This 85-nucleotide RNA from Paenibacillus contaminans belongs to the Rfam family "BsrC". The 301 nucleotide sequence from Kouji Nakamura has been trimmed to a highly conserved ~85 nucleotide long core to form this family. A reference for the family is Saito et al. (2008), "Novel small RNA-encoding genes in the intergenic regions of Bacillus subtilis", Gene. The match comes from Rfam's covariance-model search (60 bits). Lineage of the source: Bacteria > Bacillati > Bacillota > Paenibacillaceae > Paenibacillus. The base pairs follow the family's consensus structure, which was predicted with CMfinder. It is annotated as a small RNA.
RNA sequence: GAAAACUAAAACGACGGAAGCCCUACCUCUCAACCGUUCUUGCGGCUCCUAGACCGCGCCAGAUGAAUUAGCCGACAUGCCUGAA
Numbered sequence: 001g002a003a004a005a006c007u008a009a010a011a012c013g014a015c016g017g018a019a020g021c022c023c024u025a026c027c028u029c030u031c032a033a034c035c036g037u038u039c040u041u042g043c044g045g046c047u048c049c050u051a052g053a054c055c056g057c058g059c060c061a062g063a064u065g066a067a068u069u070a071g072c073c074g075a076c077a078u079g080c081c082u083g084a085a
Stems, first nucleotide, its partner, number of pairs: 035065002039062002041058005047052001